A member of the RNA family "Small nucleolar RNA SNORA15" from Trogon melanurus, 134 nucleotides long. Pairs were carried over by alignment from the consensus structure, which was predicted with RNAfold. Rfam 15.1 lists 974 matches to the family in 624 species. ACA15 is a member of the H/ACA class of snoRNA that guide the sites of modification of uridines to pseudouridines. Its family is annotated with nucleolus and RNA processing in the Gene Ontology. A search with the family's covariance model found it, with a score of 68 bits.
RNA sequence: GCAUGGGUGAAUUCUGCGCUAGCUUUUCUCAGUAGCUAAUGCAGUCAGACACUAUGCCAGAAUAAAUUCCUUUUUCAUACUGAUCGGUGUGCUUUUUGUCCAAGAGCGGGCAUGCCUUUGGAAUUGGGACACAG
Numbered sequence: 001g002c003a004u005g006g007g008u009g010a011a012u013u014c015u016g017c018g019c020u021a022g023c024u025u026u027u028c029u030c031a032g033u034a035g036c037u038a039a040u041g042c043a044g045u046c047a048g049a050c051a052c053u054a055u056g057c058c059a060g061a062a063u064a065a066a067u068u069c070c071u072u073u074u075u076c077a078u079a080c081u082g083a084u085c086g087g088u089g090u091g092c093u094u095u096u097u098g099u100c101c102a103a104g105a106g107c108g109g110g111c112a113u114g115c116c117u118u119u120g121g122a123a124u125u126g127g128g129a130c131a132c133a134g
Base pairs, nucleotide, nucleotide: 001057002056003055004054005053006052014044015043016042017041018040070127071126073123074122075121076120077119079117086116087115088114089113090112091111092110093109094108
Dot-bracket structure: ((((((.......(((((.....................))))).......))))))............((.(((((.(......(((((((((.............)))))))))).)))))..)).......